[Rfam]
RNA sequence: AUCACUGGGUUCUUGUUAAAAUGCAGAUUCUGAUCCAAGAAGCCUGGGAGAAUGCUGAGAUUCUGCAUUUCUAACAAGUUCCCAAGUGAUGUGGA
Numbered sequence: 001a002u003c004a005c006u007g008g009g010u011u012c013u014u015g016u017u018a019a020a021a022u023g024c025a026g027a028u029u030c031u032g033a034u035c036c037a038a039g040a041a042g043c044c045u046g047g048g049a050g051a052a053u054g055c056u057g058a059g060a061u062u063c064u065g066c067a068u069u070u071c072u073a074a075c076a077a078g079u080u081c082c083c084a085a086g087u088g089a090u091g092u093g094g095a
Stems, first nucleotide, its partner, number of pairs: 003088003007082003012078007019070003023066005029060003
This 95-nucleotide sequence from Ovis aries belongs to the Rfam family "mir-544 microRNA precursor family". For this family Rfam cites "Mammalian microRNAs: experimental evaluation of novel and previously annotated genes" (Chiang et al., Genes Dev, 2010). Gene Ontology terms of the family: RISC complex and miRNA-mediated post-transcriptional gene silencing. NCBI's taxonomy places the organism under Eukaryota, Opisthokonta, Vertebrata, Artiodactyla, Ovis.